[Rfam]
RNA sequence: AGAGUUUGAGGCCAUAACAGAAACCUUCAUAGCGCAGUCCUGUCAAAUUCUUAAUGAAUCUGUGAAUUCUGCU
Numbered sequence: 001a002g003a004g005u006u007u008g009a010g011g012c013c014a015u016a017a018c019a020g021a022a023a024c025c026u027u028c029a030u031a032g033c034g035c036a037g038u039c040c041u042g043u044c045a046a047a048u049u050c051u052u053a054a055u056g057a058a059u060c061u062g063u064g065a066a067u068u069c070u071g072c073u
Stems, first nucleotide, its partner, number of pairs: 008040001010039003016073001018071005024034001044062002047059004
Mammalian CPEB3 ribozyme: a 73-nucleotide sequence from Crocodylus porosus. Rfam describes the family as follows. The mammalian CPEB3 ribozyme is a self cleaving RNA located in the second intron of the CPEB3 gene which belongs to a family of genes regulating messenger RNA polyadenylation.